[Rfam]
RNA sequence: GAAGCAAGCCAGACCGCCGCUGGUACAGGUGCCGAAAGGCCGUACUGGAGGAAGGUCCGGACUGCACAGGGCAGCGUAGCAGGUAACACCUGUCCGCCGCGAGGCGAGGAUCAGAGCAACAGAGACGAGUCGUGCCGGGGCAUCGAGCCCCGGCACGGGUGAAACGGGCAAUCUCUACGCGCAGCAAUACCAAGUAGGUGGACGUCGAGGCGGCCCGCUGAGUCCACGGGUAGGUAGCACCGAGCCGCAUCCGCGAGGGGCGGCCCAGAGGAAUGGCGGUCACGGCGGGGCAACCCGCUGCACAGAAUCCGGCCUAUCGGCUUGCUUCACUU
Numbered sequence: 001g002a003a004g005c006a007a008g009c010c011a012g013a014c015c016g017c018c019g020c021u022g023g024u025a026c027a028g029g030u031g032c033c034g035a036a037a038g039g040c041c042g043u044a045c046u047g048g049a050g051g052a053a054g055g056u057c058c059g060g061a062c063u064g065c066a067c068a069g070g071g072c073a074g075c076g077u078a079g080c081a082g083g084u085a086a087c088a089c090c091u092g093u094c095c096g097c098c099g100c101g102a103g104g105c106g107a108g109g110a111u112c113a114g115a116g117c118a119a120c121a122g123a124g125a126c127g128a129g130u131c132g133u134g135c136c137g138g139g140g141c142a143u144c145g146a147g148c149c150c151c152g153g154c155a156c157g158g159g160u161g162a163a164a165c166g167g168g169c170a171a172u173c174u175c176u177a178c179g180c181g182c183a184g185c186a187a188u189a190c191c192a193a194g195u196a197g198g199u200g201g202a203c204g205u206c207g208a209g210g211c212g213g214c215c216c217g218c219u220g221a222g223u224c225c226a227c228g229g230g231u232a233g234g235u236a237g238c239a240c241c242g243a244g245c246c247g248c249a250u251c252c253g254c255g256a257g258g259g260g261c262g263g264c265c266c267a268g269a270g271g272a273a274u275g276g277c278g279g280u281c282a283c284g285g286c287g288g289g290g291c292a293a294c295c296c297g298c299u300g301c302a303c304a305g306a307a308u309c310c311g312g313c314c315u316a317u318c319g320g321c322u323u324g325c326u327u328c329a330c331u332u
Stems, first nucleotide, its partner, number of pairs: 001328010011317001012281007020048007028040001053315003057312005062184004069216004074180005079093005094108001095106004109175002114173002116169002131158001134154008188236004198227006209219003244264005250259003
Dot-bracket structure: ((((((((((((((((((.(((((((.(...........).)))))))....[[[.[[[[[((((...[[[[.((((((((((.....)))))(((((....)))).)((...((((.............(..((((((((.....))))))))...).........))..)))))))))))))...((((......((((((.....(((.]]]])))..)))))).....)))).......(((((.(((....))))))))..........)))))))..........................]]]]]]]].).))))))))))....
Rfam assigns this 332-nucleotide sequence from Caldimonas thermodepolymerans to the family "Bacterial RNase P class A". Pairs were carried over by alignment from the consensus structure, which is taken from published work. The match comes from Rfam's covariance-model search (207 bits).